[Rfam]
RNA sequence: GUACGUUCUCGGGGCGGGGUGAAACUCCCCACCGGCGGUGAUGGUGGCGCACAGGCGACACCGAGCCCGCGAGCGCCCGUCUACCCGGACGGGGACAGCAGAUUUCGGUGUGAAUCCGGAGCCGACGGUCAUAGUCCGGAUGCGAGAGAACAAGA
Numbered sequence: 001g002u003a004c005g006u007u008c009u010c011g012g013g014g015c016g017g018g019g020u021g022a023a024a025c026u027c028c029c030c031a032c033c034g035g036c037g038g039u040g041a042u043g044g045u046g047g048c049g050c051a052c053a054g055g056c057g058a059c060a061c062c063g064a065g066c067c068c069g070c071g072a073g074c075g076c077c078c079g080u081c082u083a084c085c086c087g088g089a090c091g092g093g094g095a096c097a098g099c100a101g102a103u104u105u106c107g108g109u110g111u112g113a114a115u116c117c118g119g120a121g122c123c124g125a126c127g128g129u130c131a132u133a134g135u136c137c138g139g140a141u142g143c144g145a146g147a148g149a150a151c152a153a154g155a
Stems, first nucleotide, its partner, number of pairs: 005151006017029003031135002033124002035070004065122002073099002104120005126138003
Rfam assigns this 155-nucleotide sequence from Gordonia polyisoprenivorans to the family "FMN riboswitch aptamer (RFN element)". Lineage of the source: Bacteria > Bacillati > Actinomycetota > Gordonia > Gordonia polyisoprenivorans. A search with the family's covariance model found it, with a score of 96 bits.